Rfam assigns this 45-nucleotide RNA sequence to the family "COG2908 RNA". The sequence is in the family's curated seed alignment. By type it is a cis-regulatory element.
RNA sequence: UGCCGCACAACCUUCUGGUGUAGUGUUUGUCGCACAGCGAUGGCA
Numbered sequence: 001u002g003c004c005g006c007a008c009a010a011c012c013u014u015c016u017g018g019u020g021u022a023g024u025g026u027u028u029g030u031c032g033c034a035c036a037g038c039g040a041u042g043g044c045a
Base pairs, nucleotide, nucleotide: 001045002044003043004042006025007024011018012017030040031039032038033037